[Rfam]
Notes: This 167-nucleotide sequence from Butyrivibrio sp. INlla14 belongs to the Rfam family "Clostridiales-1 RNA". Lineage of the source: Bacteria > Clostridia > Lachnospirales > Lachnospiraceae > Butyrivibrio. It is annotated as a small RNA.

RNA sequence: UGAUAUAGGUGUCAUAGACCAUAAUGCUUACAUGUUUACAUGUAUAUCAUUAUGGUCUAAUGACCCGAACAAAUAUGAGGAAAAAGCAAUUUGCGAAGCAAAUUAGCGAUUUCCGAAUAUUUGUAGAAUUGCGAGAAUGACGAAGUCAUGGAGCAAUUCGUAUAUCA
Numbered sequence: 001u002g003a004u005a006u007a008g009g010u011g012u013c014a015u016a017g018a019c020c021a022u023a024a025u026g027c028u029u030a031c032a033u034g035u036u037u038a039c040a041u042g043u044a045u046a047u048c049a050u051u052a053u054g055g056u057c058u059a060a061u062g063a064c065c066c067g068a069a070c071a072a073a074u075a076u077g078a079g080g081a082a083a084a085a086g087c088a089a090u091u092u093g094c095g096a097a098g099c100a101a102a103u104u105a106g107c108g109a110u111u112u113c114c115g116a117a118u119a120u121u122u123g124u125a126g127a128a129u130u131g132c133g134a135g136a137a138u139g140a141c142g143a144a145g146u147c148a149u150g151g152a153g154c155a156a157u158u159c160g161u162a163u164a165u166c167a
Stems, first nucleotide, its partner, number of pairs: 001167007008065003015059012028046001030043005069124008079114004086107002088104007126159007137149004